RNA sequence: CACUUUGCACAGUGGCAGUAUUGUAGCCAAUGAGGUUUAUCCAAGGCGCGAUUAUUGCUAAUUGAAAACUUAAAAAAAUAUAUUUUGGAGAGUCUAGGUCCCUUGCCUUUUCAUGUACAUUUUUGAAUAAGCUGAAGAUUU
Numbered sequence: 001c002a003c004u005u006u007g008c009a010c011a012g013u014g015g016c017a018g019u020a021u022u023g024u025a026g027c028c029a030a031u032g033a034g035g036u037u038u039a040u041c042c043a044a045g046g047c048g049c050g051a052u053u054a055u056u057g058c059u060a061a062u063u064g065a066a067a068a069c070u071u072a073a074a075a076a077a078a079u080a081u082a083u084u085u086u087g088g089a090g091a092g093u094c095u096a097g098g099u100c101c102c103u104u105g106c107c108u109u110u111u112c113a114u115g116u117a118c119a120u121u122u123u124u125g126a127a128u129a130a131g132c133u134g135a136a137g138a139u140u141u
Stems, first nucleotide, its partner, number of pairs: 020052005026047003034042002083117001085115001086113007094105001130141002133138001